[Rfam]
RNA sequence: GUGUGACGCCGGGCCCCUCUGACGAUCACCCGAUCGCCAUGUCGGAGUCACCUA
Numbered sequence: 001g002u003g004u005g006a007c008g009c010c011g012g013g014c015c016c017c018u019c020u021g022a023c024g025a026u027c028a029c030c031c032g033a034u035c036g037c038c039a040u041g042u043c044g045g046a047g048u049c050a051c052c053u054a
Stems, first nucleotide, its partner, number of pairs: 006048002009045004023036005
RNA: terC RNA